Shown here is a 104-nucleotide RNA from Gordonibacter pamelaeae, a member of the family "azaaromatic riboswitch aptamer (yjdF RNA)".
RNA sequence: CUUUAAGGAGAUAAAAACACGGCCCCGUUGAGUAGUCGGGGCGCGGCGCCAUCGGCGCCGUCCGUAACCUGCCUCCUUGGUUGUCUCUUCUCCGCAUGGAAAGC
Numbered sequence: 001c002u003u004u005a006a007g008g009a010g011a012u013a014a015a016a017a018c019a020c021g022g023c024c025c026c027g028u029u030g031a032g033u034a035g036u037c038g039g040g041g042c043g044c045g046g047c048g049c050c051a052u053c054g055g056c057g058c059c060g061u062c063c064g065u066a067a068c069c070u071g072c073c074u075c076c077u078u079g080g081u082u083g084u085c086u087c088u089u090c091u092c093c094g095c096a097u098g099g100a101a102a103g104c
Base pairs, nucleotide, nucleotide: 004096007093008092009091010090011089022042023041024040025039026038027037043061044060045059046058047057048056049055050054071081072080073079
Background:
The organism belongs to Gordonibacter pamelaeae, within Bacteria.